This 115-nucleotide sequence from Trifolium medium belongs to the Rfam family "MIR2593 microRNA precursor family".

[Rfam]
RNA sequence: AUAUAAGAAAAUUUUUACUUUUUAGAUUCAUGGAAUGAUUGAUGUAUUUGGUCUAAAAAAUGGAUCAGAUACAUCAAUCAUUCCAUGAAUCUAAAAAGUAAAAGUUUUCUUAUAU
Numbered sequence: 001a002u003a004u005a006a007g008a009a010a011a012u013u014u015u016u017a018c019u020u021u022u023u024a025g026a027u028u029c030a031u032g033g034a035a036u037g038a039u040u041g042a043u044g045u046a047u048u049u050g051g052u053c054u055a056a057a058a059a060a061u062g063g064a065u066c067a068g069a070u071a072c073a074u075c076a077a078u079c080a081u082u083c084c085a086u087g088a089a090u091c092u093a094a095a096a097a098g099u100a101a102a103a104g105u106u107u108u109c110u111u112a113u114a115u
Stems, first nucleotide, its partner, number of pairs: 002114006009107005015101011027089018049067004
Rfam 15.1 lists 1,262 matches to the family in 6 species.